[Rfam]
RNA sequence: CUCUUCUCAAUGAGCUCCUUCCUGCCAUAGAAACAGUGGCAGCCUAUGGAUUCGCACGAGAAGAAUAUUAAUUGCACAGUGCUGGCAUAUUCACCCUUGGCUUUAGACUGGUGAUUAGCCAACACUGUGGGACAUUC
Numbered sequence: 001c002u003c004u005u006c007u008c009a010a011u012g013a014g015c016u017c018c019u020u021c022c023u024g025c026c027a028u029a030g031a032a033a034c035a036g037u038g039g040c041a042g043c044c045u046a047u048g049g050a051u052u053c054g055c056a057c058g059a060g061a062a063g064a065a066u067a068u069u070a071a072u073u074g075c076a077c078a079g080u081g082c083u084g085g086c087a088u089a090u091u092c093a094c095c096c097u098u099g100g101c102u103u104u105a106g107a108c109u110g111g112u113g114a115u116u117a118g119c120c121a122a123c124a125c126u127g128u129g130g131g132a133c134a135u136u137c
Stems, first nucleotide, its partner, number of pairs: 003063006014055002016050003022042007075129005094113001096111002099108001
A member of the RNA family "Small nucleolar RNA SNORA75" from Pelodiscus sinensis, 137 nucleotides long. The organism belongs to Pelodiscus, within Eukaryota. The family has 6 seed sequences and 414 matches in Rfam 15.1. It is annotated as an H/ACA-box small nucleolar RNA.